[Rfam]
RNA sequence: UUGUCAGUUGGGAUAAUCCUUACCUGUUCCUCUUUUUGGAGGGCAAAUUAGAACAUGAUUGGGAUUCACAUGAUACAUGGUUAACAUCUCUGAGUAAGCAGGACUUUCAGCACCUUGAUUGCUCCUAUCUGAU
Number, nucleotide and partner (000 for none) at each position: 001u000002u000003g000004u000005c000006a000007g000008u000009u000010g000011g000012g000013a000014u000015a000016a000017u000018c000019c000020u000021u000022a000023c000024c000025u045026g044027u000028u043029c042030c041031u040032c039033u038034u000035u000036u000037u000038g033039g032040a031041g030042g029043g028044c026045a025046a000047a000048u000049u000050a000051g000052a000053a000054c000055a000056u000057g000058a000059u000060u000061g000062g000063g000064a000065u000066u000067c000068a000069c000070a000071u000072g090073a089074u000075a087076c000077a000078u083079g000080g000081u000082u000083a078084a000085c000086a000087u075088c000089u073090c072091u000092g000093a000094g122095u121096a120097a119098g000099c117100a116101g115102g114103a000104c000105u000106u000107u000108c000109a000110g000111c000112a000113c000114c102115u101116u100117g099118a000119u097120u096121g095122c094123u000124c000125c000126u000127a000128u000129c000130u000131g000132a000133u000